A member of the RNA family "Histidine operon leader" from Pantoea vagans, 122 nucleotides long. It scores 106 bits against the family's covariance model. Gene Ontology term of the family: histidine biosynthetic process. A reference for the family is Kolter and Yanofsky (1982), "Attenuation in amino acid biosynthetic operons", Annu Rev Genet. From the family's description: At least 6 amino acid operons are known to be regulated by attenuation. In each a leader sequence of 150-200 bp is found upstream of the first gene in the operon. It is annotated as a cis-regulatory leader.

RNA sequence: CCAUCAUCACCAUCAUCCUGACUAGUCUUUCAGGCGAUGUGUGCUGGGAGACGAUUAGGAUCUUCCAGUGGUGCGAACGCAAAGAGAGCCCCCGGAAGAUCAUCUUCCGGGGUUUUUUUUAU
Numbered sequence: 001c002c003a004u005c006a007u008c009a010c011c012a013u014c015a016u017c018c019u020g021a022c023u024a025g026u027c028u029u030u031c032a033g034g035c036g037a038u039g040u041g042u043g044c045u046g047g048g049a050g051a052c053g054a055u056u057a058g059g060a061u062c063u064u065c066c067a068g069u070g071g072u073g074c075g076a077a078c079g080c081a082a083a084g085a086g087a088g089c090c091c092c093c094g095g096a097a098g099a100u101c102a103u104c105u106u107c108c109g110g111g112g113u114u115u116u117u118u119u120u121a122u
Stems, first nucleotide, its partner, number of pairs: 008043003011039004017034005044068008083119006090112009